RNA sequence: ACACAGAAGGUAGGAAUGGAACUGCCUUCUGUGUAUCUUUUUUUUUACAUAACAUAAGGAGGUUAUGA
Number, nucleotide and partner (000 for none) at each position: 001a000002c033003a032004c031005a030006g028007a000008a027009g026010g025011u024012a023013g022014g000015a000016a000017u000018g000019g000020a000021a000022c013023u012024g011025c010026c009027u008028u006029c000030u005031g004032u003033g002034u000035a000036u000037c000038u000039u000040u000041u000042u000043u000044u000045u000046u000047a000048c067049a066050u065051a064052a063053c062054a000055u000056a000057a000058g000059g000060a000061g000062g053063u052064u051065a050066u049067g048068a000

Description
Rfam assigns this 68-nucleotide sequence to the family "cow-rumen-4 RNA". It is one of the family's seed sequences.